The family of this 107-nucleotide RNA sequence is "DUF3800-III RNA".
[Rfam]
RNA sequence: UGAACGGAUCGUAAAGCCUGGUGACUUUGGCUGUCCGUAGGACAGACCUAGCCUUUCCUGCAACGGAACGGGACAGAUUGAAAUCGAAGCCCAGGGUGAGCCGUUCA
Numbered sequence: 001u002g003a004a005c006g007g008a009u010c011g012u013a014a015a016g017c018c019u020g021g022u023g024a025c026u027u028u029g030g031c032u033g034u035c036c037g038u039a040g041g042a043c044a045g046a047c048c049u050a051g052c053c054u055u056u057c058c059u060g061c062a063a064c065g066g067a068a069c070g071g072g073a074c075a076g077a078u079u080g081a082a083a084u085c086g087a088a089g090c091c092c093a094g095g096g097u098g099a100g101c102c103g104u105u106c107a
Base pairs, nucleotide, nucleotide: 001107002106003105004104005103006102007101009099010098011097017095018094019093020092021091025089026088027087032044033043034042035041036040052071053070055068056067057066058065